[Rfam]
About this RNA:
This 65-nucleotide RNA sequence from Myotis brandtii belongs to the Rfam family "mir-9242 microRNA precursor family". Gene Ontology terms of the family: miRNA-mediated post-transcriptional gene silencing and RISC complex. The source organism's lineage runs through Eukaryota, Bilateria, Euteleostomi, Amniota and Myotis. Pairs were carried over by alignment from the consensus structure, which was predicted with RNAalifold.
RNA sequence: GGCCUCCCUCUGUGGGGCAAUCGAUCGCCGGGGCUUCGCCAUCGAUAGCCCAGCAGAGGGAGGCC
Numbered sequence: 001g002g003c004c005u006c007c008c009u010c011u012g013u014g015g016g017g018c019a020a021u022c023g024a025u026c027g028c029c030g031g032g033g034c035u036u037c038g039c040c041a042u043c044g045a046u047a048g049c050c051c052a053g054c055a056g057a058g059g060g061a062g063g064c065c
Base pairs, nucleotide, nucleotide: 001065002064003063004062005061006060007059008058009057010056011055012054013053015051016050017049018048020046021045022044023043024042025041027039028038030037031036